[Rfam]
RNA sequence: GCUUCUGUGUGAUAUGUUUGAUAUUGGGUUGUUUAAUUAGAAACCAACUAAAUGUCAAACAUAUUCUUACAGCAGU
Numbered sequence: 001g002c003u004u005c006u007g008u009g010u011g012a013u014a015u016g017u018u019u020g021a022u023a024u025u026g027g028g029u030u031g032u033u034u035a036a037u038u039a040g041a042a043a044c045c046a047a048c049u050a051a052a053u054g055u056c057a058a059a060c061a062u063a064u065u066c067u068u069a070c071a072g073c074a075g076u
Base pairs, nucleotide, nucleotide: 005072006071007070008069009068011065012064013063014062015061016060017059018058019057020056021055022054023053024052025051027049028048029047030046031045